[Rfam]
RNA sequence: AACCCCGCAAGGAAGGACUAGGCUGUCCUUGGGUGCUAACGACACUCCGGCCCCA
Number, nucleotide and partner (000 for none) at each position: 001a000002a000003c000004c000005c050006c049007g048008c000009a000010a000011g000012g000013a030014a029015g028016g027017a026018c025019u000020a000021g000022g000023c000024u000025g018026u017027c016028c015029u014030u013031g047032g046033g045034u044035g043036c000037u000038a000039a000040c000041g000042a000043c035044a034045c033046u032047c031048c007049g006050g005051c000052c000053c000054c000055a000
This 55-nucleotide sequence from Culex flavivirus belongs to the Rfam family "Insect-Specific Flavivirus 3' UTR repeats Ra". It is annotated as a cis-regulatory element. For this family Rfam cites "Genetic characterization of a new insect flavivirus isolated from Culex pipiens mosquito in Japan" (Hoshino et al., Virology, 2007). Rfam's curators put it in the seed alignment. Lineage of the source: Viruses > Kitrinoviricota > Flasuviricetes > Flaviviridae > Orthoflavivirus. Its Rfam clan is "Insect-Specific Flavivirus 3' UTR repeats Ra and Rb elements". 3' UTR in insect specific flavivirus families present three to four repeats of conserved element Ra. Pairs were carried over by alignment from the consensus structure, which was predicted with LocARNA.